About this RNA: The family of this 104-nucleotide RNA sequence from Populus trichocarpa is "MIR474 microRNA precursor family". For this family Rfam cites "Novel and mechanical stress-responsive MicroRNAs in Populus trichocarpa that are absent from Arabidopsis" (Lu et al., Plant Cell, 2005). The family's consensus secondary structure was predicted with WAR. Rfam 15.1 lists 69 matches to the family in 15 species. The sequence is in the family's curated seed alignment. The organism belongs to Populus, within Eukaryota. Rfam links the family to the GO terms miRNA-mediated post-transcriptional gene silencing and RISC complex.
RNA sequence: UCCAAAAGUUGCUGGGUUUGGCUGGGCAGGCGGACCCAAUGCUAUUGGGUUCAGCAGGACCCAACACUUCUUUCCUUCUCUUCUAUCACCAGCACCCUUUGAAA
Numbered sequence: 001u002c003c004a005a006a007a008g009u010u011g012c013u014g015g016g017u018u019u020g021g022c023u024g025g026g027c028a029g030g031c032g033g034a035c036c037c038a039a040u041g042c043u044a045u046u047g048g049g050u051u052c053a054g055c056a057g058g059a060c061c062c063a064a065c066a067c068u069u070c071u072u073u074c075c076u077u078c079u080c081u082u083c084u085a086u087c088a089c090c091a092g093c094a095c096c097c098u099u100u101g102a103a104a
Stems, first nucleotide, its partner, number of pairs: 001102002004099002008095002011093005019085003024080003028076003032052009056071004